RNA sequence: UCCAGCAGUAGUCAGCUACCCAUUGCUGCUCAGUGCCUGUGAUAGUGUUAUGCUGCUGGGAGAGAAAUGCACUGCUGAGUUGCUCCUGGCACCACUGGUGCUGUUCUGGUGCUAGAUGGUGCCAGGUUUGGCAGUGCUCUGCGUGCCUGAGAGUGGAGAAACUCCUGCUCAGUGGAGUUAAUCCUAGACUGGAUGCAGACAAC
Numbered sequence: 001u002c003c004a005g006c007a008g009u010a011g012u013c014a015g016c017u018a019c020c021c022a023u024u025g026c027u028g029c030u031c032a033g034u035g036c037c038u039g040u041g042a043u044a045g046u047g048u049u050a051u052g053c054u055g056c057u058g059g060g061a062g063a064g065a066a067a068u069g070c071a072c073u074g075c076u077g078a079g080u081u082g083c084u085c086c087u088g089g090c091a092c093c094a095c096u097g098g099u100g101c102u103g104u105u106c107u108g109g110u111g112c113u114a115g116a117u118g119g120u121g122c123c124a125g126g127u128u129u130g131g132c133a134g135u136g137c138u139c140u141g142c143g144u145g146c147c148u149g150a151g152a153g154u155g156g157a158g159a160a161a162c163u164c165c166u167g168c169u170c171a172g173u174g175g176a177g178u179u180a181a182u183c184c185u186a187g188a189c190u191g192g193a194u195g196c197a198g199a200c201a202a203c
Base pairs, nucleotide, nucleotide: 001060002059003058004057005056006055007054008053009052011051012050015046016045017044018043020041021039022038025036026035069137070136071135072134073133074132075131076130077129085126086125087124088123089122090121091120092119093118094117095115096114097112099111100110101109102108139198140197141196142195143194144193146191155184156183157182160179161178162177163176164175165174
RNA: Small nucleolar RNA SNORA74